[Rfam]
RNA: DUF2800 RNA
RNA sequence: CCGUUGUUCACCGCAUCGUCUGAUCCACGAUGGCUCAACAGUGAAUUACGGACAAGUUAAUACACACAGCGCCUAUUGAGCGGGUUGCUGCAAUCCGAAGCGGAGAGAUUCGUUUGGACUGCGGUUUGCUUUUUGCACCCUUUUUGCAUUGACGCU
Numbered sequence: 001c002c003g004u005u006g007u008u009c010a011c012c013g014c015a016u017c018g019u020c021u022g023a024u025c026c027a028c029g030a031u032g033g034c035u036c037a038a039c040a041g042u043g044a045a046u047u048a049c050g051g052a053c054a055a056g057u058u059a060a061u062a063c064a065c066a067c068a069g070c071g072c073c074u075a076u077u078g079a080g081c082g083g084g085u086u087g088c089u090g091c092a093a094u095c096c097g098a099a100g101c102g103g104a105g106a107g108a109u110u111c112g113u114u115u116g117g118a119c120u121g122c123g124g125u126u127u128g129c130u131u132u133u134u135g136c137a138c139c140c141u142u143u144u145u146g147c148a149u150u151g152a153c154g155c156u
Stems, first nucleotide, its partner, number of pairs: 001051004007045005013039001014032005033081006067151003071147002087125005100113005